[Rfam]
RNA: abiF RNA
RNA sequence: CCCGCCACGCCUCUUAACAAUGCGUAACCUUGGCGGGC
Numbered sequence: 001c002c003c004g005c006c007a008c009g010c011c012u013c014u015u016a017a018c019a020a021u022g023c024g025u026a027a028c029c030u031u032g033g034c035g036g037g038c
Stems, first nucleotide, its partner, number of pairs: 001037006008024003